[Rfam]
RNA sequence: AAAAUCGUUUUCUAGGGUUCCGCGGCGGCAGUUAACCUGACCGACGGCCUGGUCCGAGAGAAAACGCACGGCGGCCGCCGUGUGCACGGAGGGACAAAAGCCCGGGAGGA
Numbered sequence: 001a002a003a004a005u006c007g008u009u010u011u012c013u014a015g016g017g018u019u020c021c022g023c024g025g026c027g028g029c030a031g032u033u034a035a036c037c038u039g040a041c042c043g044a045c046g047g048c049c050u051g052g053u054c055c056g057a058g059a060g061a062a063a064a065c066g067c068a069c070g071g072c073g074g075c076c077g078c079c080g081u082g083u084g085c086a087c088g089g090a091g092g093g094a095c096a097a098a099a100g101c102c103c104g105g106g107a108g109g110a
Base pairs, nucleotide, nucleotide: 007065008064009063010062011061012060015055016054020052021051022049023046024045026043027042028041066083067082068081069080070079071078072077085105087108091103092102093101

Rfam assigns this 110-nucleotide RNA from Paenibacillus sp. UNC496MF to the family "Guanidine-I riboswitch aptamer". About the family: This family represents a conserved RNA structure found upstream of the ykkC and yxkD genes in Bacillus subtilis and related genes in other bacteria. On this family, see Barrick et al., Proc Natl Acad Sci U S A 2004: "New RNA motifs suggest an expanded scope for riboswitches in bacterial genetic control". The base pairs follow the family's consensus structure.